This 130-nucleotide sequence from Gemella haemolysans belongs to the Rfam family "trpB ncRNA motif". trpB ncRNA motif was reported as a strong cis regulatory motif candidate, with potential to be a cis regulatory riboswitch type, it have been identified in Firmicutes and Fusobacteria. The motif have been recognised upstream of an uncharacterized ABC transporter with strong homology to amino acid transporters. It is also occasionally located upstream of trpB gene, that codes for a tryptophan synthase. On this family, see Narunsky et al., Nucleic Acids Res 2024: "The discovery of novel noncoding RNAs in 50 bacterial genomes". Rfam's curators put it in the seed alignment. Its family is annotated with regulation of gene expression in the Gene Ontology.

[Rfam]
RNA sequence: GACAUAGACACAAUUUUAGCGUGCUCUAAAAAGUGUCUAUGUCGGCAAGGUAGGAAAUUUGUAAUUAUACAAUGUACUAAAAAUUCGAUAGUGCCGCAUAGUAAAAUAAACUAUGCGGUAUUUUUCUCUU
Numbered sequence: 001g002a003c004a005u006a007g008a009c010a011c012a013a014u015u016u017u018a019g020c021g022u023g024c025u026c027u028a029a030a031a032a033g034u035g036u037c038u039a040u041g042u043c044g045g046c047a048a049g050g051u052a053g054g055a056a057a058u059u060u061g062u063a064a065u066u067a068u069a070c071a072a073u074g075u076a077c078u079a080a081a082a083a084u085u086c087g088a089u090a091g092u093g094c095c096g097c098a099u100a101g102u103a104a105a106a107u108a109a110a111c112u113a114u115g116c117g118g119u120a121u122u123u124u125u126c127u128c129u130u
Stems, first nucleotide, its partner, number of pairs: 001043011014031006093119010